[Rfam]
RNA sequence: CUCCAAAGCCUACUUCCAAAACAACCGGUUCUAAACCAAACCAACCACCAACCAACACUCAAGAUGUCUCCCUGCUCCUGCAACUGCUGCUCCGGUGACUGCAACUCCUGCGAUUGCGGCACCUGCAGCGUAAGUUCUC
Numbered sequence: 001c002u003c004c005a006a007a008g009c010c011u012a013c014u015u016c017c018a019a020a021a022c023a024a025c026c027g028g029u030u031c032u033a034a035a036c037c038a039a040a041c042c043a044a045c046c047a048c049c050a051a052c053c054a055a056c057a058c059u060c061a062a063g064a065u066g067u068c069u070c071c072c073u074g075c076u077c078c079u080g081c082a083a084c085u086g087c088u089g090c091u092c093c094g095g096u097g098a099c100u101g102c103a104a105c106u107c108c109u110g111c112g113a114u115u116g117c118g119g120c121a122c123c124u125g126c127a128g129c130g131u132a133a134g135u136u137c138u139c
Stems, first nucleotide, its partner, number of pairs: 073097004080090003101126003110117002
Shown here is a 139-nucleotide sequence from Aspergillus ustus, a member of the family "A. fumigatus sRNA Afu_254". Rfam 15.1 lists 185 matches to the family in 142 species. Rfam classes the family as a small RNA.